[Rfam]
RNA sequence: AUCCUCUGGCAAUGGACAAAGAGAUUCCUCAUUGGUGGUGUUGCUCCUUUAUCAGCCAGGGGCAGAGCAGACAGGCCUUGGUUCAUCUUAGCUUGAUGUCUGGGUUGUUGGCCAAACUUGUUUCAUGCCUAAGGUAUCAAAAG
Numbered sequence: 001a002u003c004c005u006c007u008g009g010c011a012a013u014g015g016a017c018a019a020a021g022a023g024a025u026u027c028c029u030c031a032u033u034g035g036u037g038g039u040g041u042u043g044c045u046c047c048u049u050u051a052u053c054a055g056c057c058a059g060g061g062g063c064a065g066a067g068c069a070g071a072c073a074g075g076c077c078u079u080g081g082u083u084c085a086u087c088u089u090a091g092c093u094u095g096a097u098g099u100c101u102g103g104g105u106u107g108u109u110g111g112c113c114a115a116a117c118u119u120g121u122u123u124c125a126u127g128c129c130u131a132a133g134g135u136a137u138c139a140a141a142a143g
Base pairs, nucleotide, nucleotide: 003062004061005060006059007058008057013054014053015052019048021046023042024041025040027038028037080138081137082136084134095129097127101125102124103123106120107119110117